[Rfam]
RNA sequence: CGCCAUGGAAGAACGGCUAAGAGCGCCGCGUCCUUAUGUCUUCGCCGUUCUGACCCGCAUCCUGCGGG
Numbered sequence: 001c002g003c004c005a006u007g008g009a010a011g012a013a014c015g016g017c018u019a020a021g022a023g024c025g026c027c028g029c030g031u032c033c034u035u036a037u038g039u040c041u042u043c044g045c046c047g048u049u050c051u052g053a054c055c056c057g058c059a060u061c062c063u064g065c066g067g068g
Stems, first nucleotide, its partner, number of pairs: 011050007025040001027038002054068005
Dot-bracket structure: ..........(((((((.......(.((........)).)...)))))))...(((((.....)))))
RNA: Bacillaceae-1 RNA